[Rfam]
RNA sequence: AUCUAUAAAGGCAAACCUGCCGAAAGGUAGGGACGCAAAGCCAACGGAUCUAAACGUAAGCAGGAUGGCCGGGUUGCAGAUU
Number, nucleotide and partner (000 for none) at each position: 001a082002u000003c079004u078005a000006u000007a000008a000009a000010g000011g036012c035013a000014a000015a000016c031017c030018u029019g028020c027021c026022g000023a000024a000025a000026g021027g020028u019029a018030g017031g016032g000033a000034c068035g012036c011037a000038a000039a075040g074041c073042c072043a000044a000045c071046g070047g069048a066049u065050c064051u000052a000053a000054a000055c000056g000057u000058a000059a000060g000061c000062a000063g000064g050065a049066u048067g000068g034069c047070c046071g045072g042073g041074u040075u039076g000077c000078a004079g003080a000081u000082u001
The family of this 82-nucleotide RNA from Christensenella minuta is "c-di-GMP-I-GGC riboswitch aptamer".
Taxonomically the source falls in Christensenella (Bacteria, Bacillati, Clostridia, Christensenellales).
Its Rfam clan is "c-di-GMP_I riboswitch clan".
A reference for the family is Weinberg et al. (2017), "Bioinformatic analysis of riboswitch structures uncovers variant classes with altered ligand specificity", Proc Natl Acad Sci U S A.